[Rfam]
RNA sequence: ACCUUAUCAAGAGAGGCGGAGGGACUGGCCCGAUGAAGCCCGGCAACCACUGUACCCCGGUACAGAAAGGUGCCAAUUCCUGCAAAACCCGUGGGUUUUGACAGAUGAGGA
Numbered sequence: 001a002c003c004u005u006a007u008c009a010a011g012a013g014a015g016g017c018g019g020a021g022g023g024a025c026u027g028g029c030c031c032g033a034u035g036a037a038g039c040c041c042g043g044c045a046a047c048c049a050c051u052g053u054a055c056c057c058c059g060g061u062a063c064a065g066a067a068a069g070g071u072g073c074c075a076a077u078u079c080c081u082g083c084a085a086a087a088c089c090c091g092u093g094g095g096u097u098u099u100g101a102c103a104g105a106u107g108a109g110g111a
Stems, first nucleotide, its partner, number of pairs: 002110007013041001015040003021031003025082001027080002042074004047070002050065003078103001083100006
This 111-nucleotide RNA from Brevibacillus sp. WF146 belongs to the Rfam family "SAM riboswitch aptamer (S box leader)". The source organism's lineage runs through Bacteria, Bacillati, Bacillota, Bacilli and Brevibacillus. The family's consensus secondary structure is taken from published work.